[Rfam]
A member of the RNA family "mir-9242 microRNA precursor family" from Myotis lucifugus, 64 nucleotides long.
A search with the family's covariance model found it, with a score of 73 bits.
Nucleotides: 064
Stems, first nucleotide, its partner, number of pairs: 001064026030037002
Number, partner (000 for none) and nucleotide at each position: 001064g002063g003062c004061c005060u006059c007058c008057c009056u010055c011054u012053g013052c014051a015050g016049g017048g018047c019046g020045a021044u022043c023042g024041a025040u026039c027000c028000c029000a030037g031036g032000g033000c034000c035000c036031c037030c038000a039026g040025a041024u042023c043022g044021a045020u046019u047018g048017c049016c050015c051014u052013g053012c054011a055010g056009a057008g058007g059006g060005a061004g062003g063002c064001c